Source information:
This 61-nucleotide RNA sequence from Mikania micrantha belongs to the Rfam family "Plastid-psbN 5UTR RNA". The organism belongs to Mikania, within Eukaryota. About the family: Plastid psbN is a non-coding RNA (ncRNA) recognised in plastids. It was reported as a conserved 11 stem-loop in the prime untranslated region (5UTR) of psbN genes. It has been reported that the motif is retained in a subset of mature transcripts in barley, which can suggests a possible role in transcript alternative 5 prime processing. It is annotated as a cis-regulatory element. The match comes from Rfam's covariance-model search (67 bits).

RNA sequence: UGUGACGCCCAUCAAAGGGGUCGUUCCACACCCAGGAGCUACUUUACCAUAUUCAAGAUUC
Numbered sequence: 001u002g003u004g005a006c007g008c009c010c011a012u013c014a015a016a017g018g019g020g021u022c023g024u025u026c027c028a029c030a031c032c033c034a035g036g037a038g039c040u041a042c043u044u045u046a047c048c049a050u051a052u053u054c055a056a057g058a059u060u061c
Stems, first nucleotide, its partner, number of pairs: 017045005023039005